[Rfam]
RNA sequence: CCCCAUGCGUCUUUGGGACCUGUCAACUGUGGCCGCCUCCCUUCUUAGCCGUGGAAGAGCAUUUUUAUUUAUUUAUAGCAAAGCUGUCACCAUUUAAUUGGUAUCAGAUUCUGACUUGCACGAGUAACAUUC
Numbered sequence: 001c002c003c004c005a006u007g008c009g010u011c012u013u014u015g016g017g018a019c020c021u022g023u024c025a026a027c028u029g030u031g032g033c034c035g036c037c038u039c040c041c042u043u044c045u046u047a048g049c050c051g052u053g054g055a056a057g058a059g060c061a062u063u064u065u066u067a068u069u070u071a072u073u074u075a076u077a078g079c080a081a082a083g084c085u086g087u088c089a090c091c092a093u094u095u096a097a098u099u100g101g102u103a104u105c106a107g108a109u110u111c112u113g114a115c116u117u118g119c120a121c122g123a124g125u126a127a128c129a130u131u132c
Base pairs, nucleotide, nucleotide: 003054004053005052006051007050015041016040017039018038020035022033023032024031070129072127073126076123078119079118080117081116084107085106086105089102090101091100092099
Dot-bracket structure: ..(((((.......((((.(.(((......))).)..))))........)))))...............(.((..(.((((..(((..((((......))))..)))........))))...)..)).)...
Shown here is a 132-nucleotide RNA from Pipistrellus kuhlii, a member of the family "Small nucleolar RNA SNORA24".
The match comes from Rfam's covariance-model search (120 bits).
Rfam's curators write: ACA24 is a member of the H/ACA class of snoRNA that guide the sites of modification of uridines to pseudouridines.
By type it is an H/ACA-box small nucleolar RNA.
Gene Ontology terms of the family: nucleolus and RNA processing.
The organism belongs to Pipistrellus, within Eukaryota.